A member of the RNA family "mir-320 microRNA precursor family" from Callithrix jacchus, 76 nucleotides long.
RNA sequence: AUGGUAAAGGGCCUUCUCUUCCCUGUUCUUCCUGGAGUCAGGAAAAGCUGGGUUGAGAUGGGGGAAAAAUAUGAUA
Numbered sequence: 001a002u003g004g005u006a007a008a009g010g011g012c013c014u015u016c017u018c019u020u021c022c023c024u025g026u027u028c029u030u031c032c033u034g035g036a037g038u039c040a041g042g043a044a045a046a047g048c049u050g051g052g053u054u055g056a057g058a059u060g061g062g063g064g065a066a067a068a069a070u071a072u073g074a075u076a
Stems, first nucleotide, its partner, number of pairs: 015058004021052003025048001029044006